RNA sequence: CUCCCACAUGAAAGCGAAGUCCCCGUGGAGCUUUACUGCAGCCUGUAGCUGUAAUACGGUUAUCAAUGCGUAGCGUAGGAAGGAGUUGUUAAUGCUUGGGUUUCGGCUCAAGCGGAGACGUCAAUGAAACACUUCCCUUUAAUAACUGCGUUACUAACUUUUGUGAAAAAGGACAACUAUUGGUGGGCAGUUUGGGUGGGGCGCCACGCCCCUGAGAAUCAAACAGGGGCCCCCAAAGGUUGGCUCAGGAGGGUCAGAAAUCCUCCGUGGAGUGUAAGAGCAAAAGCCAACUUGACUGUGUUCUGGUCAACAAGGGACGCAGAUGCGAAAGCAUGGUCUAACGAACCACCCAGUCCCCUCUUGAUGAGGGCGGGUGAUAAGAGAGAAGUUACCCCAGGGAUAACUGAGUUGUCCUCGGCAAGAGUUCACAUCGACCCGAGGGUUUGCUACUUCGAUGUCGUCUGUUCCUAUCCUGGUGCUGAACAAGGUGCCAAGGGUGGGGCUGUUCGCCCAUUAAAAGGGAUCCUGAGAUGGGUUCACUACGUCGCGAGACAGUAGGGUUGCUUCUCUGUGGGAGUGUU
Numbered sequence: 001c002u003c004c005c006a007c008a009u010g011a012a013a014g015c016g017a018a019g020u021c022c023c024c025g026u027g028g029a030g031c032u033u034u035a036c037u038g039c040a041g042c043c044u045g046u047a048g049c050u051g052u053a054a055u056a057c058g059g060u061u062a063u064c065a066a067u068g069c070g071u072a073g074c075g076u077a078g079g080a081a082g083g084a085g086u087u088g089u090u091a092a093u094g095c096u097u098g099g100g101u102u103u104c105g106g107c108u109c110a111a112g113c114g115g116a117g118a119c120g121u122c123a124a125u126g127a128a129a130c131a132c133u134u135c136c137c138u139u140u141a142a143u144a145a146c147u148g149c150g151u152u153a154c155u156a157a158c159u160u161u162u163g164u165g166a167a168a169a170a171g172g173a174c175a176a177c178u179a180u181u182g183g184u185g186g187g188c189a190g191u192u193u194g195g196g197u198g199g200g201g202c203g204c205c206a207c208g209c210c211c212c213u214g215a216g217a218a219u220c221a222a223a224c225a226g227g228g229g230c231c232c233c234c235a236a237a238g239g240u241u242g243g244c245u246c247a248g249g250a251g252g253g254u255c256a257g258a259a260a261u262c263c264u265c266c267g268u269g270g271a272g273u274g275u276a277a278g279a280g281c282a283a284a285a286g287c288c289a290a291c292u293u294g295a296c297u298g299u300g301u302u303c304u305g306g307u308c309a310a311c312a313a314g315g316g317a318c319g320c321a322g323a324u325g326c327g328a329a330a331g332c333a334u335g336g337u338c339u340a341a342c343g344a345a346c347c348a349c350c351c352a353g354u355c356c357c358c359u360c361u362u363g364a365u366g367a368g369g370g371c372g373g374g375u376g377a378u379a380a381g382a383g384a385g386a387a388g389u390u391a392c393c394c395c396a397g398g399g400a401u402a403a404c405u406g407a408g409u410u411g412u413c414c415u416c417g418g419c420a421a422g423a424g425u426u427c428a429c430a431u432c433g434a435c436c437c438g439a440g441g442g443u444u445u446g447c448u449a450c451u452u453c454g455a456u457g458u459c460g461u462c463u464g465u466u467c468c469u470a471u472c473c474u475g476g477u478g479c480u481g482a483a484c485a486a487g488g489u490g491c492c493a494a495g496g497g498u499g500g501g502g503c504u505g506u507u508c509g510c511c512c513a514u515u516a517a518a519a520g521g522g523a524u525c526c527u528g529a530g531a532u533g534g535g536u537u538c539a540c541u542a543c544g545u546c547g548c549g550a551g552a553c554a555g556u557a558g559g560g561u562u563g564c565u566u567c568u569c570u571g572u573g574g575g576a577g578u579g580u581u
Stems, first nucleotide, its partner, number of pairs: 001577008010569002014564002022398002025395001027394002029390005035191004042183002045180004051154005057148007065140002068137001078136005085119003097110005158171004194207001195205003208230006233336002239291006245271002248266006272281002296322009324333001326331001347376005353371001356370004407448003411445001412442007422432002459534001460532004464526001465523005472497002476491005500512004540558004544553003
The family of this 581-nucleotide part of an RNA from Thermoplasmatales archaeon Gpl is "Archaeal large subunit ribosomal RNA".
The organism belongs to Thermoplasmatales, within Archaea.
It is one of the family's seed sequences.
The base pairs follow the family's consensus structure, which is taken from published work.